[Rfam]
RNA sequence: AUCAAGCUAGCGGCUUCCAAGGUUAGUGCAAGGCUCCUCACCGUGGAGGAGGCGUGCCAGCUUACUCCACCCCAUUCUGCAAAAUCCAAGUAUGGGUUUGGAGCUAAGGAGGUCCGCAGCUUG
Numbered sequence: 001a002u003c004a005a006g007c008u009a010g011c012g013g014c015u016u017c018c019a020a021g022g023u024u025a026g027u028g029c030a031a032g033g034c035u036c037c038u039c040a041c042c043g044u045g046g047a048g049g050a051g052g053c054g055u056g057c058c059a060g061c062u063u064a065c066u067c068c069a070c071c072c073c074a075u076u077c078u079g080c081a082a083a084a085u086c087c088a089a090g091u092a093u094g095g096g097u098u099u100g101g102a103g104c105u106a107a108g109g110a111g112g113u114c115c116g117c118a119g120c121u122u123g
Base pairs, nucleotide, nucleotide: 006120007119008118012114013113014112015111016110017109018108022065023064025062028057029056032053035050036049037048038047039046068103070101071100074097075096076095077094078092079091080090
Dot-bracket structure: .....(((...(((((((...((.(..((..(..(((((......)))))..)..))....).))..(.((..(((((((.........))).))))..)).)....)))))))...)))...
Rfam assigns this 123-nucleotide RNA sequence from Orthohepacivirus hominis to the family "Hepatitis C virus J7880 RNA". The family's RNA type in Rfam is cis-regulatory element. It is one of the family's seed sequences.